SAM riboswitch aptamer (S box leader): a 114-nucleotide sequence from Staphylococcus saprophyticus. Rfam's curators put it in the seed alignment. From the family's description: The SAM riboswitch is found upstream of a number of genes which code for proteins involved in methionine or cysteine biosynthesis in Gram-positive bacteria. The SAM riboswitch acts at the level of transcription termination control. Rfam links the family to the GO term regulation of gene expression.
RNA sequence: CUCUUAUUAAGAGUGAGUGGAGGGACUUGGCCCUAUGAAACUCCAGCAACAGCAGUCAUAUGCGAUGUGCUAAAUCCAACAACUCAGUAUGACGAUUGAGUUGAAAGAUGGGAA
Numbered sequence: 001c002u003c004u005u006a007u008u009a010a011g012a013g014u015g016a017g018u019g020g021a022g023g024g025a026c027u028u029g030g031c032c033c034u035a036u037g038a039a040a041c042u043c044c045a046g047c048a049a050c051a052g053c054a055g056u057c058a059u060a061u062g063c064g065a066u067g068u069g070c071u072a073a074a075u076c077c078a079a080c081a082a083c084u085c086a087g088u089a090u091g092a093c094g095a096u097u098g099a100g101u102u103g104a105a106a107g108a109u110g111g112g113a114a
Base pairs, nucleotide, nucleotide: 002113003112004111005110006109007108008107013044015043016042017041018040022033023032024031027079028078029077030076045071046070047069048068050067051066052063053062054061075106080103081102082101083100084099085098086097087096088095